[Rfam]
RNA sequence: GGGACACUCAAAAACUGGCGGCACUUUUCUUCCAAUGACAAAAAAAGUGCCCCCACAGUUUGAGUGUGCC
Numbered sequence: 001g002g003g004a005c006a007c008u009c010a011a012a013a014a015c016u017g018g019c020g021g022c023a024c025u026u027u028u029c030u031u032c033c034a035a036u037g038a039c040a041a042a043a044a045a046a047g048u049g050c051c052c053c054c055a056c057a058g059u060u061u062g063a064g065u066g067u068g069c070c
Stems, first nucleotide, its partner, number of pairs: 004067009016055003020051006026044003
Rfam assigns this 70-nucleotide RNA sequence from Jaculus jaculus to the family "mir-290 microRNA precursor family". Its Rfam clan is "mir-290 clan". A search with the family's covariance model found it, with a score of 57 bits. Gene Ontology terms of the family: miRNA-mediated post-transcriptional gene silencing and RISC complex. The organism belongs to Jaculus, within Eukaryota. The family's consensus secondary structure was predicted with RNAalifold.